[Rfam]
RNA sequence: CAAUAGAAUAGGUGUCUCAAGGGUGGUCAGCUCAUCCCCAUUUGAAAGGGGGUGGUGCUGUAUGACGGUUUUCGAAGCUUUGAUGUUUGCUUGUACGUUCACAAGCUUAGUCCUCGCUGUACUGUCGUUUGAUAAAAACCACAAAAAAUAAUCCACCCUUGAGCCUGCAAGCAUAAGGUGGAUUAUUCCCAUUUGUGCUGAUCGCCCCUGAAGGGAACCAGUCUAUUGCCGACCGUUUGGUGUACCAGCACCAAGCG
Numbered sequence: 001c002a003a004u005a006g007a008a009u010a011g012g013u014g015u016c017u018c019a020a021g022g023g024u025g026g027u028c029a030g031c032u033c034a035u036c037c038c039c040a041u042u043u044g045a046a047a048g049g050g051g052g053u054g055g056u057g058c059u060g061u062a063u064g065a066c067g068g069u070u071u072u073c074g075a076a077g078c079u080u081u082g083a084u085g086u087u088u089g090c091u092u093g094u095a096c097g098u099u100c101a102c103a104a105g106c107u108u109a110g111u112c113c114u115c116g117c118u119g120u121a122c123u124g125u126c127g128u129u130u131g132a133u134a135a136a137a138a139c140c141a142c143a144a145a146a147a148a149u150a151a152u153c154c155a156c157c158c159u160u161g162a163g164c165c166u167g168c169a170a171g172c173a174u175a176a177g178g179u180g181g182a183u184u185a186u187u188c189c190c191a192u193u194u195g196u197g198c199u200g201a202u203c204g205c206c207c208c209u210g211a212a213g214g215g216a217a218c219c220a221g222u223c224u225a226u227u228g229c230c231g232a233c234c235g236u237u238u239g240g241u242g243u244a245c246c247a248g249c250a251c252c253a254a255g256c257g
Stems, first nucleotide, its partner, number of pairs: 001228005007222001009220001011218001014202002016163008025153003032055003036051004064126006077091001102116001173196003205215002234257010

Shown here is a 257-nucleotide RNA from Mesobacillus zeae, a member of the family "BsrG". About the family: bsrE, bsrG and bsrH pair through intermolecular interactions with antisense sRNAs. They form type I toxin/antitoxin system that includes an mRNA encoding for a short, toxic peptide (bsrE, bsrG and bsrH) and an antitoxin that is comprised of an antisense RNA. bsrG encodes a 39-amino-acid toxin, and the 180 nucleotide antisense sRNA called SR4 acts as the antitoxin (they overlap by 123 nucleotides). The literature on the family includes a 2013 paper in Nucleic Acids Res by Jahn and Brantl, "One antitoxin--two functions: SR4 controls toxin mRNA decay and translation".